[Rfam]
RNA: FMN riboswitch aptamer (RFN element)
Organism: Microbacterium caowuchunii
RNA sequence: AACGUGCUCCGGGGUCGGUGUGAAUCCGAACCGGCGGUGACAGUCCGCGAGCGUUCCCGGUCCGAGAGGACGGGGGAUGCCGAUCCGGUGGAAUUCCGGGACCGACGGUGAUGCGACAUCUCGAUGUCGCGAGUCCGGAUGGGAGGCAGCACGCG
Number, nucleotide and partner (000 for none) at each position: 001a000002a000003c153004g152005u151006g150007c149008u148009c146010c145011g000012g000013g000014g000015u000016c028017g027018g026019u000020g000021u000022g000023a000024a000025u000026c018027c017028g016029a000030a000031c000032c104033g103034g048035c047036g046037g045038u000039g000040a000041c000042a000043g102044u101045c037046c036047g035048c034049g000050a000051g080052c079053g078054u077055u076056c075057c074058c000059g000060g000061u000062c000063c000064g000065a000066g000067a000068g000069g000070a000071c000072g000073g000074g057075g056076g055077a054078u053079g052080c051081c000082g000083a000084u100085c099086c098087g097088g096089u000090g000091g000092a000093a000094u000095u000096c088097c087098g086099g085100g084101a044102c043103c033104g032105a000106c137107g136108g135109u000110g000111a000112u000113g000114c000115g000116a000117c000118a000119u000120c000121u000122c000123g000124a000125u000126g000127u000128c000129g000130c000131g000132a000133g000134u000135c108136c107137g106138g000139a000140u000141g000142g000143g000144a000145g010146g009147c000148a008149g007150c006151a005152c004153g003154c000155g000